RNA sequence: UGCUGUGAUGGUGUAAUUUGCGUCUUACUCUGUGAUCAGCGACAGUGGCCUGCUGUCACAUACUGGCACAGAAGACUGACGAAUACAGAGUCUGAGCA
Numbered sequence: 001u002g003c004u005g006u007g008a009u010g011g012u013g014u015a016a017u018u019u020g021c022g023u024c025u026u027a028c029u030c031u032g033u034g035a036u037c038a039g040c041g042a043c044a045g046u047g048g049c050c051u052g053c054u055g056u057c058a059c060a061u062a063c064u065g066g067c068a069c070a071g072a073a074g075a076c077u078g079a080c081g082a083a084u085a086c087a088g089a090g091u092c093u094g095a096g097c098a
Stems, first nucleotide, its partner, number of pairs: 001098003021081004030071005039063001041057005

Shown here is a 98-nucleotide RNA sequence from Chanos chanos, a member of the family "Small nucleolar RNA SNORD16".
The organism belongs to Chanos, within Eukaryota.
Pairs were carried over by alignment from the consensus structure, which was predicted with PFOLD.
Rfam 15.1 lists 1,321 matches to the family in 655 species.
A reference for the family is Fragapane et al. (1993), "A novel small nucleolar RNA (U16) is encoded inside a ribosomal protein intron and originates by processing of the pre-mRNA", EMBO J.